[Rfam]
RNA sequence: AUGAAAGUAACGGGAGAGACUGCCGCAUGGCAUGACAGCGGCGGCGCCGAAGGAGUAAGCCUUAUCAAAGGUGAAUCUCUCAGGCAAAAGGACCUUUACCGGACG
Dot-bracket structure: ......((((.((......(((((((...........))))))).(((((..(((...((..........))....))))).))).......)).))))......